The family of this 130-nucleotide RNA sequence from Nyctereutes procyonoides is "Small nucleolar RNA SNORA33".
Rfam's curators write: ACA33 is a member of the H/ACA class of snoRNA that guide the sites of modification of uridines to pseudouridines.
Taxonomically the source falls in Nyctereutes (Eukaryota, Opisthokonta, Tetrapoda, Boreoeutheria).
Pairs were carried over by alignment from the consensus structure, which was predicted with PFOLD.
Rfam links the family to the GO terms nucleolus and RNA processing.
RNA sequence: AAGCCAGCCAAUGAAUCUGCUUACCUGAAUGUGUUUCUGCGGAAAUUUAAAAAUCGCUGGCAAUAGUAAUGUCAUGCUACAAACCUUAAAGACAUUCAAGUCCUUAAGGUCCCUGAAAAUGGCUAUAAGA
Number, nucleotide and partner (000 for none) at each position: 001a000002a000003g061004c060005c059006a058007g057008c000009c000010a000011a000012u000013g000014a000015a000016u043017c042018u041019g040020c039021u000022u000023a000024c000025c000026u000027g000028a000029a000030u000031g000032u000033g000034u000035u000036u000037c000038u000039g020040c019041g018042g017043a016044a000045a000046u000047u000048u000049a000050a000051a000052a000053a000054u000055c000056g000057c007058u006059g005060g004061c003062a000063a000064u000065a000066g000067u000068a000069a000070u000071g123072u122073c121074a120075u000076g000077c000078u000079a000080c000081a000082a000083a110084c109085c108086u107087u106088a105089a104090a000091g102092a101093c100094a000095u000096u000097c000098a000099a000100g093101u092102c091103c000104u089105u088106a087107a086108g085109g084110u083111c000112c000113c000114u000115g000116a000117a000118a000119a000120u074121g073122g072123c071124u000125a000126u000127a000128a000129g000130a000